RNA sequence: AGCUGAUGCACAUGGCGGUUUUCCUCCCAGUGCCGCUGCAUCGGCUGUUCCCCUCUGGAGGUUUAUUGACCUUCACACUUCAAGGGCCGCGGUUUUCCGCUGGCCCUCUUUU
Numbered sequence: 001a002g003c004u005g006a007u008g009c010a011c012a013u014g015g016c017g018g019u020u021u022u023c024c025u026c027c028c029a030g031u032g033c034c035g036c037u038g039c040a041u042c043g044g045c046u047g048u049u050c051c052c053c054u055c056u057g058g059a060g061g062u063u064u065a066u067u068g069a070c071c072u073u074c075a076c077a078c079u080u081c082a083a084g085g086g087c088c089g090c091g092g093u094u095u096u097c098c099g100c101u102g103g104c105c106c107u108c109u110u111u112u
Stems, first nucleotide, its partner, number of pairs: 001046005007040003015036004056075007083107006089100004

The family of this 112-nucleotide RNA sequence from Rhizobium giardinii is "Alphaproteobacterial ar15".
The literature on the family includes a 2013 paper in PLoS One by Torres-Quesada et al., "Independent activity of the homologous small regulatory RNAs AbcR1 and AbcR2 in the legume symbiont Sinorhizobium meliloti".
The family's RNA type in Rfam is small RNA.
The organism belongs to Rhizobium, within Bacteria.
Rfam links the family to the GO term protein binding.
The base pairs follow the family's consensus structure.
It scores 119 bits against the family's covariance model.